[Rfam]
Nucleotides: 105
Base pairs, nucleotide, nucleotide: 007100008099009098010097011096012095013094014093015092
Number, partner (000 for none) and nucleotide at each position: 001000g002000u003000u004000g005000g006000g007100c008099a009098g010097a011096g012095c013094c014093u015092c016000u017000c018000g019000u020000g021000a022000u023000g024000a025000u026000g027000c028000u029000u030000c031000u032000g033000u034000c035000u036000c037000u038000g039000a040000u041000g042000g043000c044000u045000g046000u047000g048000g049000u050000g051000g052000u053000g054000a055000u056000g057000a058000a059000c060000a061000u062000c063000a064000a065000a066000c067000c068000a069000a070000a071000g072000c073000c074000u075000c076000u077000a078000a079000g080000a081000a082000g083000u084000u085000g086000g087000c088000u089000g090000a091000a092015g093014a094013g095012g096011c097010u098009c099008u100007g101000g102000g103000c104000u105000c